[Rfam]
RNA sequence: GUAACACUCAAAAAGUAGCGGCACUUUCGUCAUAGAACAGAAAGUGCCCCCACAGUUUGAGUGCCAC
Numbered sequence: 001g002u003a004a005c006a007c008u009c010a011a012a013a014a015g016u017a018g019c020g021g022c023a024c025u026u027u028c029g030u031c032a033u034a035g036a037a038c039a040g041a042a043a044g045u046g047c048c049c050c051c052a053c054a055g056u057u058u059g060a061g062u063g064c065c066a067c
Stems, first nucleotide, its partner, number of pairs: 005063008015053002018050001020048009